[Rfam]
RNA sequence: CAGGAAAUACACGGAGAUGAUUCCUGUUAAAUAACAGAUUGUUAUAAAUUUAAAGAAUAA
Numbered sequence: 001c002a003g004g005a006a007a008u009a010c011a012c013g014g015a016g017a018u019g020a021u022u023c024c025u026g027u028u029a030a031a032u033a034a035c036a037g038a039u040u041g042u043u044a045u046a047a048a049u050u051u052a053a054a055g056a057a058u059a060a
Stems, first nucleotide, its partner, number of pairs: 001026006